[Rfam]
RNA sequence: UCCAUCGCGAGAUGGAAUCUGAAGGAAGCUGGAUGUGAGGAACAUACUAACUCACGGGCAAAUCUCUGGUCUGACGAACAGAAAUCUUAUAAGAGGUCAUGCAUGAGGGCAAGGUUGCAUACCAAAUCGAAGCCCAAUAACUACACGGAAUCAUGUCUGUGAUUUGGGCGCUGAAUAAAGAACGGUGCUGUGAG
Numbered sequence: 001u002c003c004a005u006c007g008c009g010a011g012a013u014g015g016a017a018u019c020u021g022a023a024g025g026a027a028g029c030u031g032g033a034u035g036u037g038a039g040g041a042a043c044a045u046a047c048u049a050a051c052u053c054a055c056g057g058g059c060a061a062a063u064c065u066c067u068g069g070u071c072u073g074a075c076g077a078a079c080a081g082a083a084a085u086c087u088u089a090u091a092a093g094a095g096g097u098c099a100u101g102c103a104u105g106a107g108g109g110c111a112a113g114g115u116u117g118c119a120u121a122c123c124a125a126a127u128c129g130a131a132g133c134c135c136a137a138u139a140a141c142u143a144c145a146c147g148g149a150a151u152c153a154u155g156u157c158u159g160u161g162a163u164u165u166g167g168g169c170g171c172u173g174a175a176u177a178a179a180g181a182a183c184g185g186u187g188c189u190g191u192g193a194g
Stems, first nucleotide, its partner, number of pairs: 001016006051194005058186002063181003067177002069172001071170001073169001085168003089164001096160001098159001101156006107135004113128004
The record is a 194-nucleotide sequence from Lachnospiraceae bacterium OM04-12BH, which matches "Group II catalytic intron D1-D4-3" in Rfam. The source organism's lineage runs through Bacteria, Bacillati, Bacillota, Clostridia and Lachnospiraceae. The literature on the family includes a 2001 paper in Trends Genet by Bonen and Vogel, "The ins and outs of group II introns". The match comes from Rfam's covariance-model search (90 bits).